[Rfam]
RNA sequence: UACUACAAAACCCUAUCUUCACCUCCCUGUGGUGACCGCUGGGAGUUUUUUCUUAAUGAAAAACUGCAAACAGAAAAGG
Numbered sequence: 001u002a003c004u005a006c007a008a009a010a011c012c013c014u015a016u017c018u019u020c021a022c023c024u025c026c027c028u029g030u031g032g033u034g035a036c037c038g039c040u041g042g043g044a045g046u047u048u049u050u051u052c053u054u055a056a057u058g059a060a061a062a063a064c065u066g067c068a069a070a071c072a073g074a075a076a077a078g079g
Stems, first nucleotide, its partner, number of pairs: 012079003016075001018073002021033003044065007052058001

Rfam assigns this 79-nucleotide RNA from Hermetia illucens to the family "drz-agam-1 ribozyme". It scores 39 bits against the family's covariance model. For this family Rfam cites "Widespread occurrence of self-cleaving ribozymes" (Webb et al., Science, 2009). Taxonomically the source falls in Hermetia (Eukaryota, Bilateria, Mandibulata, Allotriocarida).